[Rfam]
RNA sequence: UCAGAAUGCUAGGGGUUCUGGCCGACGGGCCGGGCGAGAUACACCCUCUGAACCUGAUCUGGGUAAUGCCAGCGAAGGGAAGCGAAAAGUGUGCAUG
Numbered sequence: 001u002c003a004g005a006a007u008g009c010u011a012g013g014g015g016u017u018c019u020g021g022c023c024g025a026c027g028g029g030c031c032g033g034g035c036g037a038g039a040u041a042c043a044c045c046c047u048c049u050g051a052a053c054c055u056g057a058u059c060u061g062g063g064u065a066a067u068g069c070c071a072g073c074g075a076a077g078g079g080a081a082g083c084g085a086a087a088a089g090u091g092u093g094c095a096u097g
Base pairs, nucleotide, nucleotide: 007084008083009082010081011047012046013045014044016041017034018033019032020031021030053078054077055076059072060071061070062069

A member of the RNA family "TPP riboswitch aptamer (THI element)" from Oxalobacter paraformigenes, 97 nucleotides long. The organism belongs to Oxalobacter, within Bacteria. A search with the family's covariance model found it, with a score of 62 bits.